A member of the RNA family "Small nucleolar RNA SNORD24" from Apostasia shenzhenica, 84 nucleotides long. Rfam classes the family as a C/D-box small nucleolar RNA. The literature on the family includes a 1995 paper in Nucleic Acids Res by Qu et al., "U24, a novel intron-encoded small nucleolar RNA with two 12 nt long, phylogenetically conserved complementarities to 28S rRNA". Its family is annotated with RNA processing and nucleolus in the Gene Ontology.

[Rfam]
RNA sequence: GGCCGGUGAUGUGAGAAAAAUAUUUGCUACUCGUGAUGGGGAUUUCCAUCUGAUAAGUAGGGAACUACCAAGAUCUCUAAGGCU
Numbered sequence: 001g002g003c004c005g006g007u008g009a010u011g012u013g014a015g016a017a018a019a020a021u022a023u024u025u026g027c028u029a030c031u032c033g034u035g036a037u038g039g040g041g042a043u044u045u046c047c048a049u050c051u052g053a054u055a056a057g058u059a060g061g062g063a064a065c066u067a068c069c070a071a072g073a074u075c076u077c078u079a080a081g082g083c084u
Stems, first nucleotide, its partner, number of pairs: 001084004